[Rfam]
RNA sequence: GCGGGCGUGGCGAAACUGGUAGACGCGCGUGGUUUAGGUCCACGUGACGAAAGUCAUGGGGGUUCGAGUCCCUCCGCCCGCA
Numbered sequence: 001g002c003g004g005g006c007g008u009g010g011c012g013a014a015a016c017u018g019g020u021a022g023a024c025g026c027g028c029g030u031g032g033u034u035u036a037g038g039u040c041c042a043c044g045u046g047a048c049g050a051a052a053g054u055c056a057u058g059g060g061g062g063u064u065c066g067a068g069u070c071c072c073u074c075c076g077c078c079c080g081c082a
Stems, first nucleotide, its partner, number of pairs: 001081007010026003028044005058074005
tRNA: an 82-nucleotide sequence from Magnetospira sp. QH-2. It scores 53 bits against the family's covariance model. Lineage of the source: Bacteria > Pseudomonadati > Pseudomonadota > Alphaproteobacteria > Magnetospira. The family's consensus secondary structure is taken from published work.